[Rfam]
RNA sequence: UGGAGGAGGCCGGAUCCUGGGCUCCUGUGCUCCCUGUGCUCCGGGGCCUGCGCUGUUGGAUUCUGCUCCCGCCCCGCAACCCCCU
Dot-bracket structure: .((.((..((.((..(..(((.(((((.((.(...(.(((....)))).).))))..)))......))).)))..))..)).)).
Numbered sequence: 001u002g003g004a005g006g007a008g009g010c011c012g013g014a015u016c017c018u019g020g021g022c023u024c025c026u027g028u029g030c031u032c033c034c035u036g037u038g039c040u041c042c043g044g045g046g047c048c049u050g051c052g053c054u055g056u057u058g059g060a061u062u063c064u065g066c067u068c069c070c071g072c073c074c075c076g077c078a079a080c081c082c083c084c085u
Stems, first nucleotide, its partner, number of pairs: 002084002005081002009077002012073002016071001019069003023060003026055002029053002032050001036048001038047003